Rfam assigns this 72-nucleotide RNA sequence from Kingdonia uniflora to the family "Small nucleolar RNA snoR60".
RNA sequence: AAGCAUAUGAUGAAAUUACUCGAAUUCCUCUUCAGGAAUUUUUGGAUGAUGUAGCUUCGAGCUUCUGAUGCU
Numbered sequence: 001a002a003g004c005a006u007a008u009g010a011u012g013a014a015a016u017u018a019c020u021c022g023a024a025u026u027c028c029u030c031u032u033c034a035g036g037a038a039u040u041u042u043u044g045g046a047u048g049a050u051g052u053a054g055c056u057u058c059g060a061g062c063u064u065c066u067g068a069u070g071c072u
Stems, first nucleotide, its partner, number of pairs: 002072004